[Rfam]
RNA sequence: AACAACAUUAAGGUUGUCGGACUUAUGCGGUACCCGCCGCGUAGUAGAUAGAAUCUACAUUGGGCUUCUAUAUAGGAGAAAACAAAAUG
Numbered sequence: 001a002a003c004a005a006c007a008u009u010a011a012g013g014u015u016g017u018c019g020g021a022c023u024u025a026u027g028c029g030g031u032a033c034c035c036g037c038c039g040c041g042u043a044g045u046a047g048a049u050a051g052a053a054u055c056u057a058c059a060u061u062g063g064g065c066u067u068c069u070a071u072a073u074a075g076g077a078g079a080a081a082a083c084a085a086a087a088u089g
Stems, first nucleotide, its partner, number of pairs: 002017005024043007044058004
This 89-nucleotide RNA belongs to the Rfam family "freshwater-2 RNA". Rfam's curators put it in the seed alignment.